[Rfam]
RNA sequence: ACGCAGUUCUCCCCACUGAAACAUAGUUUCGGUAGCCUUCUGGAAUAACCAAGUUCGGAAGGUGCUGGAGACUGCAAUAUGAAAAUAUCUCGAGAUGCGUGUGCCGGUUUGCUUUCAAUGCGAUCUGGUUCCUUUUCUCCUCGGGACAAUU
Dot-bracket structure: ..((((((........((.(((...))).))...((((.(((((.........))))).))))......)))))).............((((((..(.....(((((.((((.......)))).))))).......)..))))))......
RNA: Caenorhabditis snoRNA ceN104
Organism: Caenorhabditis sp. 36 PRJEB53466